[Rfam]
RNA sequence: AUCUUAUCAAGAGAGGUCGAGGGACUGGCCCGUGGAAACCUCAGCAACCGCCACAUAGUGGAAUGGUGCUAAUUCCAGCAAGAAAUUAUUCUUGGAAGAUAAGAG
Numbered sequence: 001a002u003c004u005u006a007u008c009a010a011g012a013g014a015g016g017u018c019g020a021g022g023g024a025c026u027g028g029c030c031c032g033u034g035g036a037a038a039c040c041u042c043a044g045c046a047a048c049c050g051c052c053a054c055a056u057a058g059u060g061g062a063a064u065g066g067u068g069c070u071a072a073u074u075c076c077a078g079c080a081a082g083a084a085a086u087u088a089u090u091c092u093u094g095g096a097a098g099a100u101a102a103g104a105g
Base pairs, nucleotide, nucleotide: 002104003103004102005101006100007099008098013042014041015040016039017038021031022030023029025078026077027076028075043070044069045068046067048066049065051061052060053059074097079094080093081092082091083090084089
Rfam assigns this 105-nucleotide sequence from Heyndrickxia ginsengihumi to the family "SAM riboswitch aptamer (S box leader)". The family's consensus secondary structure is taken from published work.